[Rfam]
RNA sequence: AUGACAAUUUCUCCGGAAUCUCUGCCACUUACUUUGAUGAUUUCCGUUGAACCCUUUUCCAGCUGACGACUGCAUAAUCUGUGA
Numbered sequence: 001a002u003g004a005c006a007a008u009u010u011c012u013c014c015g016g017a018a019u020c021u022c023u024g025c026c027a028c029u030u031a032c033u034u035u036g037a038u039g040a041u042u043u044c045c046g047u048u049g050a051a052c053c054c055u056u057u058u059c060c061a062g063c064u065g066a067c068g069a070c071u072g073c074a075u076a077a078u079c080u081g082u083g084a
Base pairs, nucleotide, nucleotide: 002084004082005081006080
Small nucleolar RNA MBII-202: an 84-nucleotide sequence from Anguilla anguilla. Taxonomically the source falls in Anguilla (Eukaryota, Bilateria, Teleostei, Elopocephala). It is annotated as a C/D-box small nucleolar RNA. A search with the family's covariance model found it, with a score of 54 bits. For this family Rfam cites "RNomics: an experimental approach that identifies 201 candidates for novel, small, non-messenger RNAs in mouse" (Huttenhofer et al., EMBO J, 2001). Rfam 15.1 lists 745 matches to the family in 452 species.